[Rfam]
RNA: Small nucleolar RNA SNORD59
Nucleotides: 069
Stems, first nucleotide, its partner, number of pairs: 001069003005065001
Number, partner (000 for none) and nucleotide at each position: 001069g002068u003067u004000c005065a006000g007000a008000u009000g010000a011000u012000g013000u014000c015000a016000a017000u018000u019000u020000u021000a022000a023000c024000u025000u026000u027000c028000g029000u030000u031000c032000u033000u034000c035000u036000g037000a038000g039000a040000g041000u042000a043000a044000u045000g046000a047000a048000g049000c050000c051000a052000u053000u054000u055000u056000c057000u058000u059000c060000a061000c062000u063000g064000a065005u066000g067003a068002a069001c